[Rfam]
RNA sequence: GGCUCUCGAUUUUGCGUUCACCUCCUCGUGGUGAGAGCCGGGCAACGACAAAGUAAUUUGGCGGCUGACGAAUGC
Numbered sequence: 001g002g003c004u005c006u007c008g009a010u011u012u013u014g015c016g017u018u019c020a021c022c023u024c025c026u027c028g029u030g031g032u033g034a035g036a037g038c039c040g041g042g043c044a045a046c047g048a049c050a051a052a053g054u055a056a057u058u059u060g061g062c063g064g065c066u067g068a069c070g071a072a073u074g075c
Stems, first nucleotide, its partner, number of pairs: 001039007020032003046063002049060004

The family of this 75-nucleotide RNA sequence is "HDV ribozyme from F. prausnitzii".
A reference for the family is Webb et al. (2009), "Widespread occurrence of self-cleaving ribozymes", Science.
The match comes from Rfam's covariance-model search (47 bits).
The family has 48 seed sequences and 3,803 matches in Rfam 15.1.
Gene Ontology term of the family: catalytic activity.